RNA sequence: UGGUGAUGUCUCCCUACCAUUAUCAAUGGAGGCACUCGAUCAUGCUGUGGGUCCCUGAAAAGACCUUAGACGCGAGUCGUCGUUAGUGUGAUGUGAGGGGGGGUUAAAUGCCCU
Numbered sequence: 001u002g003g004u005g006a007u008g009u010c011u012c013c014c015u016a017c018c019a020u021u022a023u024c025a026a027u028g029g030a031g032g033c034a035c036u037c038g039a040u041c042a043u044g045c046u047g048u049g050g051g052u053c054c055c056u057g058a059a060a061a062g063a064c065c066u067u068a069g070a071c072g073c074g075a076g077u078c079g080u081c082g083u084u085a086g087u088g089u090g091a092u093g094u095g096a097g098g099g100g101g102g103g104u105u106a107a108a109u110g111c112c113c114u
Base pairs, nucleotide, nucleotide: 001019002018003017004016007034008033009032010031011030012029013028035097036096037095038094039092040091041090042089043088044087045086046085049066050065051064052063053062069081070080071079072078100114101113102112103111104110
RNA: epsC RNA